[Rfam]
RNA sequence: UUCCAUGAGUUGGAGGCGGGACUCCGUCCCUGCUUCUAGCGCCAAGGCGGCCCUCGGGCACGCCGAUCCAGGUGGAAGACAU
Numbered sequence: 001u002u003c004c005a006u007g008a009g010u011u012g013g014a015g016g017c018g019g020g021a022c023u024c025c026g027u028c029c030c031u032g033c034u035u036c037u038a039g040c041g042c043c044a045a046g047g048c049g050g051c052c053c054u055c056g057g058g059c060a061c062g063c064c065g066a067u068c069c070a071g072g073u074g075g076a077a078g079a080c081a082u
Stems, first nucleotide, its partner, number of pairs: 001077005011070004018030005046064004
The family of this 82-nucleotide part of an RNA from Chlorella variabilis is "Eukaryotic large subunit ribosomal RNA". The base pairs follow the family's consensus structure, which is taken from published work. NCBI's taxonomy places the organism under Eukaryota, Viridiplantae, core chlorophytes, Chlorellales, Chlorella.